[Rfam]
Bacterial RNase P class A: a 374-nucleotide sequence from Chitinophaga lutea.
RNA sequence: UGGUACAGCGGUGCUAUCGACUGCUUCCGGCAACGGAGGCGGUAGGAAAGUCCGGACAGCACAGGGCAACGCACCACCUAACGGGUGGGGCCUCCGCGCAGGCGGGGGAACAGACAGUGCCACAGAAAAUAACCACCCGGGCGCAAGCCGGGGAAAGGGUGAAAAUGUGGGGUAAGAGCCCACGGUAAGGCCGGGUAACCGGCAUUACGGGUAAACCUUGCGUGCUGAAAUGCCAUGUAUACGGUCGUUCGAGGGCUGCCCGCCCGAGACCGAGGGUAGGCAGAUACAGGCGCUCAGUGAUGGGCGCCGCAGAUAAAUGAUAGCGGUUCGUUGCAAAACGUUCACAGAAUCCGGCUUACAGGCUGUACCAGGUG
Numbered sequence: 001u002g003g004u005a006c007a008g009c010g011g012u013g014c015u016a017u018c019g020a021c022u023g024c025u026u027c028c029g030g031c032a033a034c035g036g037a038g039g040c041g042g043u044a045g046g047a048a049a050g051u052c053c054g055g056a057c058a059g060c061a062c063a064g065g066g067c068a069a070c071g072c073a074c075c076a077c078c079u080a081a082c083g084g085g086u087g088g089g090g091c092c093u094c095c096g097c098g099c100a101g102g103c104g105g106g107g108g109a110a111c112a113g114a115c116a117g118u119g120c121c122a123c124a125g126a127a128a129a130u131a132a133c134c135a136c137c138c139g140g141g142c143g144c145a146a147g148c149c150g151g152g153g154a155a156a157g158g159g160u161g162a163a164a165a166u167g168u169g170g171g172g173u174a175a176g177a178g179c180c181c182a183c184g185g186u187a188a189g190g191c192c193g194g195g196u197a198a199c200c201g202g203c204a205u206u207a208c209g210g211g212u213a214a215a216c217c218u219u220g221c222g223u224g225c226u227g228a229a230a231u232g233c234c235a236u237g238u239a240u241a242c243g244g245u246c247g248u249u250c251g252a253g254g255g256c257u258g259c260c261c262g263c264c265c266g267a268g269a270c271c272g273a274g275g276g277u278a279g280g281c282a283g284a285u286a287c288a289g290g291c292g293c294u295c296a297g298u299g300a301u302g303g304g305c306g307c308c309g310c311a312g313a314u315a316a317a318u319g320a321u322a323g324c325g326g327u328u329c330g331u332u333g334c335a336a337a338a339c340g341u342u343c344a345c346a347g348a349a350u351c352c353g354g355c356u357u358a359c360a361g362g363c364u365g366u367a368c369c370a371g372g373u374g
Stems, first nucleotide, its partner, number of pairs: 001370009011359001012325007020043009048357003052354005057227004064261004069223005074088005089111001091108007112218002117216002119212003133158002136153003140149003166184006186207003190203005231282004242272005253265004289308008
About the family: Ribonuclease P (RNase P) is a ubiquitous endoribonuclease, found in archaea, bacteria and eukarya as well as chloroplasts and mitochondria. The source organism's lineage runs through Bacteria, Pseudomonadati, Bacteroidota, Chitinophagia and Chitinophaga.